[Rfam]
RNA sequence: UGAAACUUUGCAUUCACACACGGGCCUCUAUGAGACCCAGUGACCAAUUUUUGCGGACCCUUGCGGAAGCAAGGGCG
Numbered sequence: 001u002g003a004a005a006c007u008u009u010g011c012a013u014u015c016a017c018a019c020a021c022g023g024g025c026c027u028c029u030a031u032g033a034g035a036c037c038c039a040g041u042g043a044c045c046a047a048u049u050u051u052u053g054c055g056g057a058c059c060c061u062u063g064c065g066g067a068a069g070c071a072a073g074g075g076c077g
Base pairs, nucleotide, nucleotide: 022038023037024036026034027033028032058075059074060073061072062071063070064069